[Rfam]
RNA sequence: CACCGCUUGGUGAAAAUGGGCCGUAAAUGGCACCGGUUAGUAGCAUGAUCGAAAGCCGGUGAGGCUAACAAAGAG
Numbered sequence: 001c002a003c004c005g006c007u008u009g010g011u012g013a014a015a016a017u018g019g020g021c022c023g024u025a026a027a028u029g030g031c032a033c034c035g036g037u038u039a040g041u042a043g044c045a046u047g048a049u050c051g052a053a054a055g056c057c058g059g060u061g062a063g064g065c066u067a068a069c070a071a072a073g074a075g
Base pairs, nucleotide, nucleotide: 001012002011003010004009019066020065021064022063031061032060033059034058035057036056037055043050
Rfam assigns this 75-nucleotide RNA to the family "RT-18 RNA". By type it is a small RNA. The base pairs follow the family's consensus structure, which is taken from published work.